[Rfam]
RNA sequence: ACGGGCCUUUUCGCCACCUUAAGCAAGUGGGCAUCGGGUUUAGAAAAGGAUUUCUAACGGCCGUAAACGCAGGCGCAGAUUAGUGCUUGUUUCACGGUGUUAUCUCCGGUGGUGGUUCCGUGAAGCGGUCUGAGCAAGGACCGCGCAAUGAAAAGAUACCUUUGUAUCUUCAUCAUUGUUUCGGCUGUGGCAGUGAGCCUCGGAAAGGGGAGCUGGAAUAUUUCCAAUAACUCUCUCAACGUGAUCAUUACCACAACGAGCAAGUAAGCUAAUAGCCACCUGUGAGGGUGGCUAUUUUC
Numbered sequence: 001a002c003g004g005g006c007c008u009u010u011u012c013g014c015c016a017c018c019u020u021a022a023g024c025a026a027g028u029g030g031g032c033a034u035c036g037g038g039u040u041u042a043g044a045a046a047a048g049g050a051u052u053u054c055u056a057a058c059g060g061c062c063g064u065a066a067a068c069g070c071a072g073g074c075g076c077a078g079a080u081u082a083g084u085g086c087u088u089g090u091u092u093c094a095c096g097g098u099g100u101u102a103u104c105u106c107c108g109g110u111g112g113u114g115g116u117u118c119c120g121u122g123a124a125g126c127g128g129u130c131u132g133a134g135c136a137a138g139g140a141c142c143g144c145g146c147a148a149u150g151a152a153a154a155g156a157u158a159c160c161u162u163u164g165u166a167u168c169u170u171c172a173u174c175a176u177u178g179u180u181u182c183g184g185c186u187g188u189g190g191c192a193g194u195g196a197g198c199c200u201c202g203g204a205a206a207g208g209g210g211a212g213c214u215g216g217a218a219u220a221u222u223u224c225c226a227a228u229a230a231c232u233c234u235c236u237c238a239a240c241g242u243g244a245u246c247a248u249u250a251c252c253a254c255a256a257c258g259a260g261c262a263a264g265u266a267a268g269c270u271a272a273u274a275g276c277c278a279c280c281u282g283u284g285a286g287g288g289u290g291g292c293u294a295u296u297u298u299c
Base pairs, nucleotide, nucleotide: 007048008047009046010045011044012043014030015029016028017027032037060186062184070089071088072087073086074085075084076083091124092123093122094121095120096119097118099116101114102113103112104111125144126143127142128141129140130139131138145179146178147177148176149175150174151173153170154169155168156167157166158165159164187265188264193261194260215225216224217223218222241252271297272296273294274293275292276291277290278289279288280287281286
This 299-nucleotide sequence from Dendroctonus ponderosae belongs to the Rfam family "ryfA RNA".
The match comes from Rfam's covariance-model search (179 bits).
The base pairs follow the family's consensus structure, which was predicted with RNAalifold.
The source organism's lineage runs through Eukaryota, Metazoa, Bilateria, Aparaglossata and Dendroctonus.
From the family's description: This family consists of a number of bacterial RNA genes of 305 bases in length. The ryfA RNA gene is present in E. coli, Shigella flexneri and Salmonella species where it is found between the ydaN and dbpA genes.
The literature on the family includes a 2001 paper in Curr Biol by Rivas et al., "Computational identification of noncoding RNAs in E. coli by comparative genomics".
The family's RNA type in Rfam is small RNA.